[Rfam]
RNA sequence: UGGACCAUUGGUAACAUCUGGUGGUGGAUGUCCAGGAUGAUGAAUAACUUGUGUCUGGAUGUAUGAGAUCUGA
Numbered sequence: 001u002g003g004a005c006c007a008u009u010g011g012u013a014a015c016a017u018c019u020g021g022u023g024g025u026g027g028a029u030g031u032c033c034a035g036g037a038u039g040a041u042g043a044a045u046a047a048c049u050u051g052u053g054u055c056u057g058g059a060u061g062u063a064u065g066a067g068a069u070c071u072g073a
Stems, first nucleotide, its partner, number of pairs: 002071003006067001
RNA: Small nucleolar RNA SNORD113/SNORD114 family
Organism: Pipistrellus kuhlii